[Rfam]
RNA sequence: AUGGCGGAAACCGAAAAGCCUUUAUUAGAGUAGGUA
Numbered sequence: 001a002u003g004g005c006g007g008a009a010a011c012c013g014a015a016a017a018g019c020c021u022u023u024a025u026u027a028g029a030g031u032a033g034g035u036a
Base pairs, nucleotide, nucleotide: 003020004019005018010035011034012033
Record summary
The record is a 36-nucleotide RNA from Aquimarina atlantica, which matches "DUF805b RNA" in Rfam. By type it is a cis-regulatory element. The organism belongs to Aquimarina, within Bacteria.